Rfam assigns this 81-nucleotide sequence from Vibrio maritimus to the family "antisense RNA of dnaA mRNA".
Pairs were carried over by alignment from the consensus structure, which was predicted with RNAfold.
A reference for the family is Dadzie et al. (2013), "Identification and characterization of a cis-encoded antisense RNA associated with the replication process of Salmonella enterica serovar Typhi", PLoS One.
The organism belongs to Vibrio, within Bacteria.
It scores 68 bits against the family's covariance model.

[Rfam]
RNA sequence: UUUCGCGUUUGGCUUGUUAUCAACAAUGGCGUUGCCCACAGCGUGCAAUAGGUGAGUUUUACCUAGACCUGUACCGCCAUA
Numbered sequence: 001u002u003u004c005g006c007g008u009u010u011g012g013c014u015u016g017u018u019a020u021c022a023a024c025a026a027u028g029g030c031g032u033u034g035c036c037c038a039c040a041g042c043g044u045g046c047a048a049u050a051g052g053u054g055a056g057u058u059u060u061a062c063c064u065a066g067a068c069c070u071g072u073a074c075c076g077c078c079a080u081a
Stems, first nucleotide, its partner, number of pairs: 004043003009038001011036003016032002020029002051078004056074002061072002